RNA: SAM (S-adenosyl methionine) riboswitch aptamer
Organism: Arthrobacter sp. RIT-PI-e
RNA sequence: GAUCAAGAGUUCCGAUGCGAAGCCCUGGCUCGUCGGGCGGCAACCCUCUCCCGUGGCGGGGUGCCCCAGGUGACGAUCCGGCCCGCGCAUCGAGCGCAGGGCAAGCACGGCGU
Numbered sequence: 001g002a003u004c005a006a007g008a009g010u011u012c013c014g015a016u017g018c019g020a021a022g023c024c025c026u027g028g029c030u031c032g033u034c035g036g037g038c039g040g041c042a043a044c045c046c047u048c049u050c051c052c053g054u055g056g057c058g059g060g061g062u063g064c065c066c067c068a069g070g071u072g073a074c075g076a077u078c079c080g081g082c083c084c085g086c087g088c089a090u091c092g093a094g095c096g097c098a099g100g101g102c103a104a105g106c107a108c109g110g111c112g113u
Base pairs, nucleotide, nucleotide: 001078002077003076004075009038011037012036013035014034015033016032021030022029039065040064041063044061045060046059048056049055081102082101083100084099085097086096087095088094
Dot-bracket structure: ((((....(.((((((....((......)).)))))))(((..(((.((.....))..))).))).........))))..((((((((.....)))).))))...........